[Rfam]
RNA sequence: UCCCUCCCUGGAAGGGAUGAUGUGUCAGCACUGAGCCCAAGAUAAGGACUCUGACUGCAUUUGUCUGUGAUGAAACUUAACUGAGUGUUCUGACCUUCCAUGGUGUGGC
Number, nucleotide and partner (000 for none) at each position: 001u000002c000003c000004c000005u000006c000007c000008c000009u100010g099011g098012a097013a096014g095015g094016g000017a000018u000019g000020a000021u000022g000023u000024g000025u000026c000027a000028g000029c000030a000031c000032u000033g000034a000035g000036c000037c000038c000039a000040a000041g000042a000043u000044a000045a000046g000047g000048a000049c000050u000051c000052u000053g000054a000055c000056u000057g000058c000059a000060u000061u000062u000063g000064u000065c000066u000067g000068u000069g000070a000071u000072g000073a000074a000075a000076c000077u000078u000079a000080a000081c000082u000083g000084a000085g000086u000087g000088u000089u000090c000091u000092g000093a000094c015095c014096u013097u012098c011099c010100a009101u000102g000103g000104u000105g000106u000107g000108g000109c000
Background
Shown here is a 109-nucleotide sequence from Urocolius indicus, a member of the family "Small nucleolar RNA SNORD124". On this family, see Yang et al., Nucleic Acids Res 2006: "snoSeeker: an advanced computational package for screening of guide and orphan snoRNA genes in the human genome". The family's consensus secondary structure was predicted with WAR. Rfam links the family to the GO terms nucleolus and RNA processing. The family's RNA type in Rfam is C/D-box small nucleolar RNA. Taxonomically the source falls in Urocolius (Eukaryota, Deuterostomia, Archosauria, Neoaves).